The record is a 58-nucleotide sequence, which matches "L31-Actinobacteria ribosomal protein leader" in Rfam.
It is one of the family's seed sequences.
The base pairs follow the family's consensus structure, which is taken from published work.
[Rfam]
RNA sequence: UUGGUUCCGGUUCACCCCGCUGACGUCGUGCCGACGCGCGACCGGGGACCCGGCGGCC
Numbered sequence: 001u002u003g004g005u006u007c008c009g010g011u012u013c014a015c016c017c018c019g020c021u022g023a024c025g026u027c028g029u030g031c032c033g034a035c036g037c038g039c040g041a042c043c044g045g046g047g048a049c050c051c052g053g054c055g056g057c058c
Stems, first nucleotide, its partner, number of pairs: 003058003007053004015047005
It is annotated as a cis-regulatory leader.